[Rfam]
RNA sequence: ACAAUAUUUGGACCGUCGGUCUGCCGAGCAAUUUCAUCCGCUCGGUGGAAGAUCUUUCUAUGUCGU
Numbered sequence: 001a002c003a004a005u006a007u008u009u010g011g012a013c014c015g016u017c018g019g020u021c022u023g024c025c026g027a028g029c030a031a032u033u034u035c036a037u038c039c040g041c042u043c044g045g046u047g048g049a050a051g052a053u054c055u056u057u058c059u060a061u062g063u064c065g066u
Stems, first nucleotide, its partner, number of pairs: 004063003010058003015053003020049010
mir-2774 microRNA precursor family: a 66-nucleotide RNA sequence from Bombyx mori. On this family, see Liu et al., BMC Genomics 2010: "MicroRNAs of Bombyx mori identified by Solexa sequencing". NCBI's taxonomy places the organism under Eukaryota, Metazoa, Aparaglossata, Obtectomera, Bombyx.